[Rfam]
RNA sequence: GCUGUGGAGCGACACAUAAACGCAAGUAGUCCAGACGAAAGCGGUCGCUGAGAAACAGUGA
Numbered sequence: 001g002c003u004g005u006g007g008a009g010c011g012a013c014a015c016a017u018a019a020a021c022g023c024a025a026g027u028a029g030u031c032c033a034g035a036c037g038a039a040a041g042c043g044g045u046c047g048c049u050g051a052g053a054a055a056c057a058g059u060g061a
Base pairs, nucleotide, nucleotide: 001059002058003057004056005055009048010047011046012045013044021043022042023041029036030035
The family of this 61-nucleotide RNA is "RAGATH-18 RNA". Pairs were carried over by alignment from the consensus structure, which is taken from published work. Rfam classes the family as a small RNA.